[Rfam]
RNA sequence: GGAUGUAACUCUGGAGAAUCCCUUUUAAGGGUGCCGAAGGUGUAAGGGACGGAUAAAACCGUUUUAAUCUCUCAGGCAAAAGGACAGAGAACCUAUA
Numbered sequence: 001g002g003a004u005g006u007a008a009c010u011c012u013g014g015a016g017a018a019u020c021c022c023u024u025u026u027a028a029g030g031g032u033g034c035c036g037a038a039g040g041u042g043u044a045a046g047g048g049a050c051g052g053a054u055a056a057a058a059c060c061g062u063u064u065u066a067a068u069c070u071c072u073c074a075g076g077c078a079a080a081a082g083g084a085c086a087g088a089g090a091a092c093c094u095a096u097a
Base pairs, nucleotide, nucleotide: 009089010088011087012086013085020031021030022029023028033077034076035075036073037072040071042069046064047063
RNA: Glycine riboswitch aptamer